Record summary
The family of this 74-nucleotide sequence from Mus spicilegus is "U7 small nuclear RNA". Taxonomically the source falls in Mus (Eukaryota, Metazoa, Boreoeutheria, Muridae). On this family, see Spycher et al., Nucleic Acids Res 1994: "3' end processing of mouse histone pre-mRNA: evidence for additional base-pairing between U7 snRNA and pre-mRNA". A search with the family's covariance model found it, with a score of 38 bits.
[Rfam]
RNA sequence: GAGUGAAAACAGCUCUUAAAGAAUUUUUUCUAACAGGAUUUCUGACUUGCUCAGGGUUAGGUCAGAAAUCCCAA
Number, nucleotide and partner (000 for none) at each position: 001g000002a000003g000004u000005g000006a000007a000008a000009a000010c000011a000012g000013c000014u000015c000016u000017u000018a000019a000020a000021g000022a000023a000024u000025u000026u000027u000028u000029u000030c000031u000032a000033a000034c000035a000036g071037g070038a069039u068040u067041u066042c065043u064044g063045a062046c061047u060048u059049g058050c000051u000052c000053a000054g000055g000056g000057u000058u049059a048060g047061g046062u045063c044064a043065g042066a041067a040068a039069u038070c037071c036072c000073a000074a000